[Rfam]
RNA sequence: AUGUUAUCAAGAAAGGCAGAGGGAUUAGACCCGAUGAAGCCUUAGCAACCCUUUAUUUAUGCUGAUGUCUAUCAGUAUCUUAAAGAAGGUGCUAAAUUCUACCUAACACAUUUAGUGUGCGGAUAGAUAACUC
Numbered sequence: 001a002u003g004u005u006a007u008c009a010a011g012a013a014a015g016g017c018a019g020a021g022g023g024a025u026u027a028g029a030c031c032c033g034a035u036g037a038a039g040c041c042u043u044a045g046c047a048a049c050c051c052u053u054u055a056u057u058u059a060u061g062c063u064g065a066u067g068u069c070u071a072u073c074a075g076u077a078u079c080u081u082a083a084a085g086a087a088g089g090u091g092c093u094a095a096a097u098u099c100u101a102c103c104u105a106a107c108a109c110a111u112u113u114a115g116u117g118u119g120c121g122g123a124u125a126g127a128u129a130a131c132u133c
Base pairs, nucleotide, nucleotide: 003131004130005129006128007127008126013043014042015041016040017039021032022031023030026101027100028099029098044093045092046091047090049089050088051085052084053083054082097125102122103121106118107117108116109115
Rfam assigns this 133-nucleotide sequence from a Flavobacteriaceae bacterium to the family "SAM riboswitch aptamer (S box leader)". The match comes from Rfam's covariance-model search (75 bits). The organism belongs to Flavobacteriaceae, within Bacteria.